Shown here is a 126-nucleotide RNA from Halomonas sp. YLB-10, a member of the family "Ribosomal S15 leader". The family's consensus secondary structure is taken from published work. The match comes from Rfam's covariance-model search (49 bits). By type it is a cis-regulatory leader. The E. coli Ribosomal S15 gene 5' UTR can form two alternative structures. One that is a series of three hairpins, The other includes a pseudoknot. This structure causes translational regulation of the S15 protein. The alignment of this family contains only the final two hairpins which are conserved in other species, and also includes the complete region that forms the alternate structures.

Nucleotides: 126
Base pairs, nucleotide, nucleotide: 007026008025009024010023011022012021049079050078060077061076063074
Number, partner (000 for none) and nucleotide at each position: 001000g002000c003000u004000g005000g006000a007026g008025a009024c010023u011022g012021c013000a014000a015000a016000u017000a018000u019000g020000c021012g022011u023010g024009g025008u026007c027000u028000c029000c030000g031000a032000c033000a034000u035000u036000c037000a038000u039000c040000a041000u042000u043000c044000a045000g046000g047000c048000a049079u050078a051000u052000u053000g054000c055000u056000u057000a058000c059000u060077g061076g062000a063074g064000a065000g066000a067000c068000a069000g070000a071000u072000g073000g074063c075000a076061c077060u078050u079049a080000c081000c082000g083000c084000c085000g086000a087000a088000c089000a090000g091000a092000a093000g094000g095000c096000c097000g098000a099000a100000a101000u102000c103000g104000u105000c106000a107000a108000c109000g110000a111000a112000u113000a114000c115000g116000g117000c118000c119000g120000u121000g122000g123000u124000g125000a126000c